[Rfam]
RNA sequence: AAAUUGCCCUCUAAAUUUUGUAAUUGUACAGUUUUGGCCCCCUAAGGCCAAUUUUGGUAAAAAAAAAUAACAUGUGGCACCUCACUUAGGCUGCCACAUCGGCACCUCAUUUAGGGUGUUACGUCAGCGUAGAUCGAGUCAAAAUUGAUCCUGGGGGCCAAAACUGUCACAAAUGCAAAACUUAGAGGGCAAUUU
Numbered sequence: 001a002a003a004u005u006g007c008c009c010u011c012u013a014a015a016u017u018u019u020g021u022a023a024u025u026g027u028a029c030a031g032u033u034u035u036g037g038c039c040c041c042c043u044a045a046g047g048c049c050a051a052u053u054u055u056g057g058u059a060a061a062a063a064a065a066a067a068u069a070a071c072a073u074g075u076g077g078c079a080c081c082u083c084a085c086u087u088a089g090g091c092u093g094c095c096a097c098a099u100c101g102g103c104a105c106c107u108c109a110u111u112u113a114g115g116g117u118g119u120u121a122c123g124u125c126a127g128c129g130u131a132g133a134u135c136g137a138g139u140c141a142a143a144a145u146u147g148a149u150c151c152u153g154g155g156g157g158c159c160a161a162a163a164c165u166g167u168c169a170c171a172a173a174u175g176c177a178a179a180a181c182u183u184a185g186a187g188g189g190c191a192a193u194u195u
Base pairs, nucleotide, nucleotide: 001195002194004192005191006190007189008188012184013183014182016180017179018178019177020176021175022174024172025171026170027169028167029166030165031164032163033162034161035160036159037158038157039156040155041154042153072124073123075121076120077119078118079117080116081115083114
This 195-nucleotide RNA sequence from Medicago truncatula belongs to the Rfam family "MIR2619 microRNA precursor family". The base pairs follow the family's consensus structure, which was predicted with RNAalifold. Taxonomically the source falls in Medicago (Eukaryota, Euphyllophyta, Magnoliopsida, Fabaceae).